[Rfam]
RNA sequence: CCGGCCCCGUCAUUGGGGAGUAGCCGCUCUUCCGCGCGAAGAGGCUUGCGUCAACACACUUGCCGGUCACGGCAUGGCGCAGGCAGUGUUCCCGCCUGGCAAGACCUUUGACCACACGACCUCCCAUCGGGCCGGAGAAGUCGCGUGGUCAUUCGUCUUUUCCGGCCUAUGGUAUU
Numbered sequence: 001c002c003g004g005c006c007c008c009g010u011c012a013u014u015g016g017g018g019a020g021u022a023g024c025c026g027c028u029c030u031u032c033c034g035c036g037c038g039a040a041g042a043g044g045c046u047u048g049c050g051u052c053a054a055c056a057c058a059c060u061u062g063c064c065g066g067u068c069a070c071g072g073c074a075u076g077g078c079g080c081a082g083g084c085a086g087u088g089u090u091c092c093c094g095c096c097u098g099g100c101a102a103g104a105c106c107u108u109u110g111a112c113c114a115c116a117c118g119a120c121c122u123c124c125c126a127u128c129g130g131g132c133c134g135g136a137g138a139a140g141u142c143g144c145g146u147g148g149u150c151a152u153u154c155g156u157c158u159u160u161u162c163c164g165g166c167c168u169a170u171g172g173u174a175u176u
Stems, first nucleotide, its partner, number of pairs: 028042003044084010061074005085176006
Dot-bracket structure: ...........................(((.........))).((((((((((.......(((((....)))))))))))))))((((((................................................................................))))))

Rfam assigns this 176-nucleotide RNA sequence from Propionivibrio dicarboxylicus to the family "Manganese Mn2+ riboswitch aptamer (yybP-ykoY)". Rfam describes the family as follows. This RNA was originally discovered in E. coli during a large scale screen and was named SraF. The family was later found to exist upstream of related families of protein genes in many bacteria, including the the yybP and ykoK genes in B. subtilis. Taxonomically the source falls in Propionivibrio (Bacteria, Pseudomonadati, Pseudomonadota, Betaproteobacteria). Rfam links the family to the GO term manganese ion binding.